[Rfam]
RNA: MIR812 microRNA precursor family
Organism: Oryza sativa
RNA sequence: AUUUACCACUCCCUCCGUCCAAUGUUUAACUUUUGUCUUAUUUAAAUUUUUUUUAUUAUUAGAUGAUAAAACAUGAAUAAUAUUUUACAUGUGACUAAUUUAUUUUAAUUUUUUCAUAAACUUUUCAAAGACGGACGAUCAAAAGUUCGACACGGAUUGUCACGGUUGCACUUAUU
Numbered sequence: 001a002u003u004u005a006c007c008a009c010u011c012c013c014u015c016c017g018u019c020c021a022a023u024g025u026u027u028a029a030c031u032u033u034u035g036u037c038u039u040a041u042u043u044a045a046a047u048u049u050u051u052u053u054u055a056u057u058a059u060u061a062g063a064u065g066a067u068a069a070a071a072c073a074u075g076a077a078u079a080a081u082a083u084u085u086u087a088c089a090u091g092u093g094a095c096u097a098a099u100u101u102a103u104u105u106u107a108a109u110u111u112u113u114u115c116a117u118a119a120a121c122u123u124u125u126c127a128a129a130g131a132c133g134g135a136c137g138a139u140c141a142a143a144a145g146u147u148c149g150a151c152a153c154g155g156a157u158u159g160u161c162a163c164g165g166u167u168g169c170a171c172u173u174a175u176u
Base pairs, nucleotide, nucleotide: 018150019149021147022146023145025143026142027141028139030137032135033134034133035132036131037130038129